[Rfam]
RNA sequence: CAAUUCAAUAGGCUGAAUCUUCUUCCAAAUAAGGAAGGGGUACGGAGGAACCGAAUAAGUGGGGUUAAUCUGUGCGGAUUAACGGUGAUCGAAUUAUAUGAGAGAUUAAAGCUUAAGCAUUUCUUUCUGUGCUUGGAUACUGUUUUCCGUAUGGUAGGGGUGGGUCCUAUUACCCGAACCCGGCAGCUAACUUCGGAAGCCAAAAAUAGGAGGAGGA
Dot-bracket structure: ..........((((....((((((((......))))))))..(((((....((......))(((.....(((((((((...................................................................)))))))))..(((.............)))...))).........)))))..))))................